RNA sequence: AGGUAAUGUCUCCUGCACCUCUAUCACCGGAGGCACUCGGUCAUGCUGUGGGUCAAUCGACCUUAGACGUUAAUCGUCAAGGGCGUGACGUGAGGGGGGGUUAAAUGCCCC
Numbered sequence: 001a002g003g004u005a006a007u008g009u010c011u012c013c014u015g016c017a018c019c020u021c022u023a024u025c026a027c028c029g030g031a032g033g034c035a036c037u038c039g040g041u042c043a044u045g046c047u048g049u050g051g052g053u054c055a056a057u058c059g060a061c062c063u064u065a066g067a068c069g070u071u072a073a074u075c076g077u078c079a080a081g082g083g084c085g086u087g088a089c090g091u092g093a094g095g096g097g098g099g100g101u102u103a104a105a106u107g108c109c110c111c
Base pairs, nucleotide, nucleotide: 001020002019003018004017007035008034009033010032011031012030013029036094037093038092039091040089041088042087043086044085045084046083047082050063051062052061053060054059066078067077068076069075097111098110099109100108101107

A member of the RNA family "epsC RNA" from Paenibacillus arenilitoris, 111 nucleotides long. The base pairs follow the family's consensus structure, which is taken from published work. A search with the family's covariance model found it, with a score of 106 bits. The source organism's lineage runs through Bacteria, Bacillota, Bacilli, Paenibacillaceae and Paenibacillus.